[Rfam]
RNA sequence: AUACUUACCUGCUGAGGAGAUACCAUGAUCACAAAGGUGGUUUUCCCAGGCGAGGCUUAUCCAUUGCACUCCGGAUGUGCUGAUUUUGCAAUUUCUCCAAAUGCGGGAAACUCGACCACAUAAUUUGUGGUACUGGGGGACUGCGUUUGCACUUUCCUCUA
Dot-bracket structure: ............((.(((((.(((((..........)))))))))).(((.(.(((.(((((..........))))).)))..)))).(.((((.((.......)).))).).).).)................((((((..(.(....).)..)))))).
This 161-nucleotide sequence from Camelus dromedarius belongs to the Rfam family "U1 spliceosomal RNA". The organism belongs to Camelus, within Eukaryota. By type it is a spliceosomal small nuclear RNA. The literature on the family includes a 1997 paper in Nucleic Acids Res by Zwieb, "The uRNA database".